[Rfam]
RNA: mir-460 microRNA precursor family
Organism: Betta splendens
RNA sequence: CUUUACGGCUCCUGCAUUGUACACACUGUGCGUGUAGGCUACAUAAGCACAGCGCAUACAAUGUGGAUGCUGUGUCA
Numbered sequence: 001c002u003u004u005a006c007g008g009c010u011c012c013u014g015c016a017u018u019g020u021a022c023a024c025a026c027u028g029u030g031c032g033u034g035u036a037g038g039c040u041a042c043a044u045a046a047g048c049a050c051a052g053c054g055c056a057u058a059c060a061a062u063g064u065g066g067a068u069g070c071u072g073u074g075u076c077a
Stems, first nucleotide, its partner, number of pairs: 012066002015063007024054001026052006